[Rfam]
RNA sequence: UCCGGAUAAACUUGUAUUCUCCCAAGAGAGAGGAGCAAGUCACUUUACGGAAUUAAAUUAAGCAACACAUUUCAGGAUUGAUAAAGGCUUACAUACAAGUGAAAUCCUGAAAUGACAGGAUAGCCGUACGUCCUUCAAUAUUCUAUAUUGUAAAAGUAAUCUUGAAUAACUUUAGUUAGCUUUUCAAGUUACGGUUUA
Numbered sequence: 001u002c003c004g005g006a007u008a009a010a011c012u013u014g015u016a017u018u019c020u021c022c023c024a025a026g027a028g029a030g031a032g033g034a035g036c037a038a039g040u041c042a043c044u045u046u047a048c049g050g051a052a053u054u055a056a057a058u059u060a061a062g063c064a065a066c067a068c069a070u071u072u073c074a075g076g077a078u079u080g081a082u083a084a085a086g087g088c089u090u091a092c093a094u095a096c097a098a099g100u101g102a103a104a105u106c107c108u109g110a111a112a113u114g115a116c117a118g119g120a121u122a123g124c125c126g127u128a129c130g131u132c133c134u135u136c137a138a139u140a141u142u143c144u145a146u147a148u149u150g151u152a153a154a155a156g157u158a159a160u161c162u163u164g165a166a167u168a169a170c171u172u173u174a175g176u177u178a179g180c181u182u183u184u185c186a187a188g189u190u191a192c193g194g195u196u197u198a
Base pairs, nucleotide, nucleotide: 001051002050003049004048006046008044010040011039012038013037014036015035017034018033019032020031021030022028071111072110073109074108075107076106077105078104087100088099090097117134118133119132120131121130123195124194125193126192127191128190129156136150137149138148139147140146161188162187163186164185165184166183168181170179
This 198-nucleotide RNA sequence belongs to the Rfam family "IS605-orfB-I RNA".